[Rfam]
A member of the RNA family "wcaG RNA" from Diachasma alloeum, 85 nucleotides long.
The organism belongs to Diachasma, within Eukaryota.
It is annotated as a cis-regulatory element.
The base pairs follow the family's consensus structure, which is taken from published work.

RNA sequence: UGAGGUUUUUGAAUUAGUUAGAAUUGAUUGUGUAGACUCCUCCGGUUUGGUGAUUCCGGUUAAAGAUCACCUGGCGCCCAUGAAU
Number, nucleotide and partner (000 for none) at each position: 001u000002g000003a000004g000005g000006u000007u000008u000009u027010u026011g025012a000013a024014u023015u022016a000017g000018u000019u000020a000021g000022a015023a014024u013025u011026g010027a009028u000029u000030g000031u000032g000033u000034a000035g000036a000037c000038u000039c000040c000041u000042c059043c058044g057045g056046u000047u000048u000049g071050g070051u069052g068053a067054u066055u000056c045057c044058g043059g042060u000061u000062a000063a000064a000065g000066a054067u053068c052069a051070c050071c049072u000073g000074g000075c000076g000077c000078c000079c000080a000081u000082g000083a000084a000085u000